[Rfam]
RNA: RAGATH-31 RNA
RNA sequence: GGAGGACGUGGGGAACAAGGGCUGUACACGUCGCAGUCCUCCUCACGGACUCC
Numbered sequence: 001g002g003a004g005g006a007c008g009u010g011g012g013g014a015a016c017a018a019g020g021g022c023u024g025u026a027c028a029c030g031u032c033g034c035a036g037u038c039c040u041c042c043u044c045a046c047g048g049a050c051u052c053c
Base pairs, nucleotide, nucleotide: 001053002052003051004050007047008046009045010044011043012042013041014040019039020038021037022036023035024034025033